[Rfam]
RNA sequence: ACGACCUUACUUGAACAGGAUCUGUUCUAUAGGCUCGUACCUCUGUAUCCUUGAGUUCUAAGGAGACAGGAACUGAAGUCUGGUGGAUGAACGUGACCCUGUGAUCAGAGCGUGAUUAACGGUCAGGUGUGCCUUCUCCCUGGAUUAGAUACAUCUUAGCUGUAGAGGAUCGUUCCCAGUCUUCAUGAUUUGAGAUGGUCACAGGGUUGUCUGACAGACU
Number, nucleotide and partner (000 for none) at each position: 001a038002c037003g035004a000005c033006c032007u031008u000009a000010c000011u000012u000013g027014a026015a025016c024017a023018g022019g000020a000021u000022c018023u017024g016025u015026u014027c013028u000029a000030u000031a007032g006033g005034c000035u003036c000037g002038u001039a000040c000041c000042u000043c069044u068045g067046u066047a000048u064049c063050c062051u061052u060053g059054a000055g000056u000057u000058c000059u053060a052061a051062g050063g049064a048065g000066a046067c045068a044069g043070g000071a000072a000073c000074u000075g000076a000077a000078g219079u218080c217081u216082g215083g000084u000085g000086g000087a000088u000089g000090a000091a000092c000093g000094u000095g000096a207097c206098c205099c204100u203101g202102u201103g200104a199105u198106c197107a196108g000109a174110g173111c172112g171113u000114g000115a000116u000117u000118a000119a163120c162121g161122g160123u159124c000125a157126g156127g154128u153129g152130u151131g150132c000133c148134u147135u000136c000137u000138c000139c000140c000141u000142g000143g000144a000145u000146u000147a134148g133149a000150u131151a130152c129153a128154u127155c000156u126157u125158a000159g123160c122161u121162g120163u119164a000165g000166a000167g000168g000169a000170u000171c112172g111173u110174u109175c000176c000177c000178a190179g189180u188181c187182u000183u000184c000185a000186u000187g181188a180189u179190u178191u000192g000193a000194g000195a000196u107197g106198g105199u104200c103201a102202c101203a100204g099205g098206g097207u096208u000209g000210u000211c000212u000213g000214a000215c082216a081217g080218a079219c078220u000